The record is a 215-nucleotide RNA from Phenylobacterium sp. Root1277, which matches "permuted transfer-messenger RNA" in Rfam. The family's consensus secondary structure is taken from published work. Rfam links the family to the GO term RNA catabolic process. The organism belongs to Phenylobacterium, within Bacteria.

RNA sequence: GGAGAUAAACGCGCACAUAAUAAGCGGACUGGACCCGGGUGCGAUUCCCGGCGGCUCCACCAAUCUUCCCCGGUCGUUAUCGCCGGAAAGCAUGGGGCCGAUCAGCAUCGACAGACGUCUAAAGGUGUUGCUUUCUCUCGGCUUGGCCCACCGUUUCGGGCUUUAAACUAAAUGCGAACGAUAACUUCGCUGAAGAAGUCCGUCUGGCCGCGUAA
Number, nucleotide and partner (000 for none) at each position: 001g138002g137003a136004g135005a134006u000007a000008a000009a000010c000011g000012c000013g128014c127015a126016c125017a000018u000019a000020a000021u000022a000023a000024g000025c117026g116027g000028a000029c114030u113031g112032g000033a000034c000035c051036c050037g049038g048039g047040u000041g000042c000043g000044a000045u000046u000047c039048c038049c037050g036051g035052c100053g099054g098055c097056u096057c095058c094059a000060c000061c000062a000063a000064u000065c000066u000067u000068c000069c000070c000071c000072g000073g000074u000075c000076g000077u000078u000079a000080u000081c000082g000083c000084c000085g000086g000087a000088a000089a000090g000091c000092a000093u000094g058095g057096g056097g055098c054099c053100g052101a000102u000103c000104a000105g000106c000107a000108u000109c000110g000111a000112c031113a030114g029115a000116c026117g025118u000119c000120u000121a000122a000123a000124g000125g016126u015127g014128u013129u000130g000131c000132u000133u000134u005135c004136u003137c002138u001139c153140g152141g151142c000143u000144u000145g000146g000147c000148c000149c000150a000151c141152c140153g139154u000155u000156u000157c000158g000159g000160g000161c000162u000163u000164u000165a000166a000167a000168c000169u000170a000171a000172a000173u000174g000175c000176g000177a000178a000179c000180g000181a000182u000183a000184a000185c000186u000187u000188c000189g000190c000191u000192g000193a000194a000195g000196a000197a000198g000199u000200c000201c000202g000203u000204c000205u000206g000207g000208c000209c000210g000211c000212g000213u000214a000215a000